[Rfam]
RNA sequence: UGGUCCUGGUCUAUGCUUUCUUAACGUCCCUGUGCUCAGUUUUAACAGGGGAGUCUGUCAGGAUACACAGCAAUCUCCUCAGUAGUUUAGGAGGGCUGUCCUAAGAAUAGGGCUGCUGUGAGGGGACAGU
Dot-bracket structure: ..((((((..(............((..((((((...........))))))..))..).))))))................(.(..(((...(.(((.((((((....)))))).))).)..)))...).)
A member of the RNA family "Small Cajal body specific RNA 11" from Odocoileus virginianus, 130 nucleotides long.
It scores 73 bits against the family's covariance model.
On this family, see Darzacq et al., EMBO J 2002: "Cajal body-specific small nuclear RNAs: a novel class of 2'-O-methylation and pseudouridylation guide RNAs".
From the family's description: scaRNAs are a specific class of small nuclear RNAs which localise to the Cajal bodies and guide the modification of RNA polymerase II transcribed spliceosomal RNAs U1, U2, U4, U5 and U12. ACA57 belongs to the H/ACA box class of guide RNAs as it has the predicted hairpin-hinge-hairpin-tail structure, conserved H/ACA-box motifs and is found associated with GAR1. ACA57 is predicted to guide the pseudouridylation of the U5 spliceosomal RNA at position U43.
NCBI's taxonomy places the organism under Eukaryota, Chordata, Vertebrata, Sarcopterygii, Odocoileus virginianus.
Its family is annotated with RNA processing, nucleolus and Cajal body in the Gene Ontology.